[Rfam]
RNA sequence: UGCGAGUUUCUUCGGGGCGGAGCUCGACCGCCAGCAUCGCAGGUAGUGGCGUUUAUCGACGCGAGCCGCGCCGAGGUGGUCGAGGGACGUCCGCUCGGGGUCGAGCCCAUCUGCCGGGUCCUGCAGGUGGCCCCG
Numbered sequence: 001u002g003c004g005a006g007u008u009u010c011u012u013c014g015g016g017g018c019g020g021a022g023c024u025c026g027a028c029c030g031c032c033a034g035c036a037u038c039g040c041a042g043g044u045a046g047u048g049g050c051g052u053u054u055a056u057c058g059a060c061g062c063g064a065g066c067c068g069c070g071c072c073g074a075g076g077u078g079g080u081c082g083a084g085g086g087a088c089g090u091c092c093g094c095u096c097g098g099g100g101u102c103g104a105g106c107c108c109a110u111c112u113g114c115c116g117g118g119u120c121c122u123g124c125a126g127g128u129g130g131c132c133c134c135g
Stems, first nucleotide, its partner, number of pairs: 016032005096135005107130002110127005116121001
RNA: ALIL pseudoknot